Notes:
The record is a 233-nucleotide RNA, which matches "Group II catalytic intron D1-D4-6" in Rfam. Rfam 15.1 lists 1,617 matches to the family in 661 species. A reference for the family is Bonen and Vogel (2001), "The ins and outs of group II introns", Trends Genet. Rfam describes the family as follows. Group II introns are found in rRNA, tRNA and mRNA of organelles in fungi, plants and protists, and also in mRNA in bacteria.
RNA sequence: AAACACCGCGUCCGGCAAAGUUUAGCGAACAGCCGGUACCAAGCCUUGAAUCGGAAGCCGCGAGGCCAAGAUUAAGCGUAGGCAUGGGAGCGCAAGAGCCGCAAUGCGAAAGCGUGAAGCGAUUGAGCCUCGUAAUAAAUUAGAGCGGAAGCCGAUGUAUUGUUGUCUACAGCAGGCAGUAAUGCGUACUCGUAAACGCGAGAGUGCGCAGGUUCCGUCGGGGUCAUAGAGCG
Numbered sequence: 001a002a003a004c005a006c007c008g009c010g011u012c013c014g015g016c017a018a019a020g021u022u023u024a025g026c027g028a029a030c031a032g033c034c035g036g037u038a039c040c041a042a043g044c045c046u047u048g049a050a051u052c053g054g055a056a057g058c059c060g061c062g063a064g065g066c067c068a069a070g071a072u073u074a075a076g077c078g079u080a081g082g083c084a085u086g087g088g089a090g091c092g093c094a095a096g097a098g099c100c101g102c103a104a105u106g107c108g109a110a111a112g113c114g115u116g117a118a119g120c121g122a123u124u125g126a127g128c129c130u131c132g133u134a135a136u137a138a139a140u141u142a143g144a145g146c147g148g149a150a151g152c153c154g155a156u157g158u159a160u161u162g163u164u165g166u167c168u169a170c171a172g173c174a175g176g177c178a179g180u181a182a183u184g185c186g187u188a189c190u191c192g193u194a195a196a197c198g199c200g201a202g203a204g205u206g207c208g209c210a211g212g213u214u215c216c217g218u219c220g221g222g223g224u225c226a227u228a229g230a231g232c233g
Stems, first nucleotide, its partner, number of pairs: 012036005020030003023201001025199002039087003043083004047078002049073004057066003125225001127224006145218006151177003156171004183210009